[Rfam]
This 75-nucleotide sequence from Scyliorhinus torazame belongs to the Rfam family "mir-216 microRNA precursor family".
Rfam 15.1 lists 1,667 matches to the family in 655 species.

RNA sequence: AGACUAGAUAAUCUCUGCAGGCAACUGUGAAGUAUUUUCACAAUCUCACAAUAGCCUACAGAGAUUCUGUAGUCU
Numbered sequence: 001a002g003a004c005u006a007g008a009u010a011a012u013c014u015c016u017g018c019a020g021g022c023a024a025c026u027g028u029g030a031a032g033u034a035u036u037u038u039c040a041c042a043a044u045c046u047c048a049c050a051a052u053a054g055c056c057u058a059c060a061g062a063g064a065u066u067c068u069g070u071a072g073u074c075u
Base pairs, nucleotide, nucleotide: 003073004072005071006070010066011065012064013063014062015061016060017059020057021056024052026050027049028048029047030046
The family is grouped with related families in Rfam's "mir-216 clan". On this family, see Shao et al., Gene 2008: "Identification of novel chicken microRNAs and analysis of their genomic organization".